The record is a 59-nucleotide sequence from Neotoma lepida, which matches "U7 small nuclear RNA" in Rfam.

RNA sequence: AUGUGUUACAGCUCUUUUAGACUUUGUCCAGGUUUUCUAACUUUUGUCAGAAAUCCCAC
Numbered sequence: 001a002u003g004u005g006u007u008a009c010a011g012c013u014c015u016u017u018u019a020g021a022c023u024u025u026g027u028c029c030a031g032g033u034u035u036u037c038u039a040a041c042u043u044u045u046g047u048c049a050g051a052a053a054u055c056c057c058a059c
Stems, first nucleotide, its partner, number of pairs: 031056002034053005040047002